The record is a 147-nucleotide sequence from Aquilegia coerulea, which matches "small nucleolar RNA snoR137" in Rfam. Rfam classes the family as an H/ACA-box small nucleolar RNA. The family has 4 seed sequences and 808 matches in Rfam 15.1. A search with the family's covariance model found it, with a score of 110 bits. Rfam links the family to the GO terms nucleolus and RNA processing.

[Rfam]
RNA sequence: GUUGCUUCAUAAUGGUGAACUCUUUCAAUAAUAGUGAAGGAUGUUUCAAGUUUCCGGAGCAUAGAUUAAUAUUUUAUUAUAACCAGGAUUAAACAGCAUUGUGUUUUUAAUUCAAUUGCACCUUGUUACCUGUCUCCUGGCAAAUUU
Numbered sequence: 001g002u003u004g005c006u007u008c009a010u011a012a013u014g015g016u017g018a019a020c021u022c023u024u025u026c027a028a029u030a031a032u033a034g035u036g037a038a039g040g041a042u043g044u045u046u047c048a049a050g051u052u053u054c055c056g057g058a059g060c061a062u063a064g065a066u067u068a069a070u071a072u073u074u075u076a077u078u079a080u081a082a083c084c085a086g087g088a089u090u091a092a093a094c095a096g097c098a099u100u101g102u103g104u105u106u107u108u109a110a111u112u113c114a115a116u117u118g119c120a121c122c123u124u125g126u127u128a129c130c131u132g133u134c135u136c137c138u139g140g141c142a143a144a145u146u147u
Stems, first nucleotide, its partner, number of pairs: 003061006016048003019044002021041005083140006095127003101121003
Dot-bracket structure: ..((((((.......((((((((((...........))))).)).))).......)))))).....................((((((......(((...(((...............)))...))).......)))))).......